[Rfam]
This 70-nucleotide RNA from Electrophorus electricus belongs to the Rfam family "mir-126 microRNA precursor family". A reference for the family is Altuvia et al. (2005), "Clustering and conservation patterns of human microRNAs", Nucleic Acids Res. The family's consensus secondary structure was predicted with RNAalifold.

RNA sequence: UCACGGUGCAUUAUUACUUUUGGUACGCGCUAGGCCUCAAACUCGUACCGUGAGUAAUAAUGCACCGUGG
Dot-bracket structure: ........((((((((((..(((((((.(............).)))))))..))))))))))........
The source organism's lineage runs through Eukaryota, Metazoa, Euteleostomi, Teleostei and Electrophorus.